[Rfam]
RNA sequence: CCGCAUCCUUCAUAAACCCCCCAGUUAUCGCCUGUGGUCUCUGGGACAAGGAAGGAUGUGAGAUGAACCUUAGAACCAUCCAAAGCCGAGACUCUGGUGUCCGUGGGUCUCAGUUAUUUCACCUCUAAGACAUAA
Numbered sequence: 001c002c003g004c005a006u007c008c009u010u011c012a013u014a015a016a017c018c019c020c021c022c023a024g025u026u027a028u029c030g031c032c033u034g035u036g037g038u039c040u041c042u043g044g045g046a047c048a049a050g051g052a053a054g055g056a057u058g059u060g061a062g063a064u065g066a067a068c069c070u071u072a073g074a075a076c077c078a079u080c081c082a083a084a085g086c087c088g089a090g091a092c093u094c095u096g097g098u099g100u101c102c103g104u105g106g107g108u109c110u111c112a113g114u115u116a117u118u119u120c121a122c123c124u125c126u127a128a129g130a131c132a133u134a135a
Base pairs, nucleotide, nucleotide: 003059004058005057006056010052011051013049020045021044022043023042024041027038028037064134065133069129070128071127072126073125074124084115085114086113088111089110090109092107093106098103
The record is a 135-nucleotide RNA sequence from Sphaeramia orbicularis, which matches "Small nucleolar RNA SNORA14" in Rfam. The organism belongs to Sphaeramia, within Eukaryota.